RNA sequence: UCGCCCACAAUCUGUUCAAACGGUUUCAACACGGAUGUGUUCGGGUGUGGCGUGUGAGCGGAUACUACACACUUGACGGUCGGCCUUGUGCCGAAGCCCUUCACAGGGACAUCUUUGUUGGGGUCGUUCUCCGAUCCGGCAACGGAUCGAGAUUGUUCCCACCUUUGGUCUCCUCGCGCUAACCCCGUAGCGUGUGGUUUUUAGCGGGCUCCAGGCCCGCUUUUUUUU
Numbered sequence: 001u002c003g004c005c006c007a008c009a010a011u012c013u014g015u016u017c018a019a020a021c022g023g024u025u026u027c028a029a030c031a032c033g034g035a036u037g038u039g040u041u042c043g044g045g046u047g048u049g050g051c052g053u054g055u056g057a058g059c060g061g062a063u064a065c066u067a068c069a070c071a072c073u074u075g076a077c078g079g080u081c082g083g084c085c086u087u088g089u090g091c092c093g094a095a096g097c098c099c100u101u102c103a104c105a106g107g108g109a110c111a112u113c114u115u116u117g118u119u120g121g122g123g124u125c126g127u128u129c130u131c132c133g134a135u136c137c138g139g140c141a142a143c144g145g146a147u148c149g150a151g152a153u154u155g156u157u158c159c160c161a162c163c164u165u166u167g168g169u170c171u172c173c174u175c176g177c178g179c180u181a182a183c184c185c186c187g188u189a190g191c192g193u194g195u196g197g198u199u200u201u202u203a204g205c206g207g208g209c210u211c212c213a214g215g216c217c218c219g220c221u222u223u224u225u226u227u228u
Stems, first nucleotide, its partner, number of pairs: 005168003019128013033114006039077003045072005052065004080094005097108004130151001132149003172197002175194007203221008
Rfam assigns this 228-nucleotide RNA sequence from Caballeronia glathei to the family "Burkholderia sRNA Bp1_Cand871_SIPHT". The family's consensus secondary structure was predicted with CMfinder. Gene Ontology term of the family: bacterial biofilm matrix. The literature on the family includes a 2017 paper in Sci Rep by Sass et al., "Identification of small RNAs abundant in Burkholderia cenocepacia biofilms reveal putative regulators with a potential role in carbon and iron metabolism".